[Rfam]
RNA: small nucleolar RNA snoR114
Organism: Arachis hypogaea
RNA sequence: GAGCUAUGACGAGUCUUGUGUCAACUGUGAUGGCUGGGUCUAUCACCAUCGUCUGAAUCUUCCGACGAAAAGUGCCACAUCUGAGCUC
Numbered sequence: 001g002a003g004c005u006a007u008g009a010c011g012a013g014u015c016u017u018g019u020g021u022c023a024a025c026u027g028u029g030a031u032g033g034c035u036g037g038g039u040c041u042a043u044c045a046c047c048a049u050c051g052u053c054u055g056a057a058u059c060u061u062c063c064g065a066c067g068a069a070a071a072g073u074g075c076c077a078c079a080u081c082u083g084a085g086c087u088c
Stems, first nucleotide, its partner, number of pairs: 001088004